Small nucleolar RNA SNORD53/SNORD92: a 77-nucleotide RNA sequence from Chloropsis hardwickii. Its Rfam clan is "SNORD52 clan". Rfam links the family to the GO terms RNA processing and nucleolus. The match comes from Rfam's covariance-model search (59 bits).

[Rfam]
Nucleotides: 077
Stems, first nucleotide, its partner, number of pairs: 001077004
Number, partner (000 for none) and nucleotide at each position: 001077u002076u003075g004074c005000g006000g007000u008000g009000a010000u011000g012000a013000u014000a015000a016000c017000c018000c019000a020000c021000u022000u023000g024000g025000u026000u027000u028000c029000g030000c031000u032000u033000g034000c035000u036000g037000c038000u039000g040000a041000u042000g043000u044000g045000c046000a047000g048000u049000g050000g051000g052000g053000c054000a055000u056000u057000u058000c059000c060000a061000c062000u063000u064000g065000g066000c067000u068000g069000u070000c071000a072000g073000a074004g075003c076002a077001g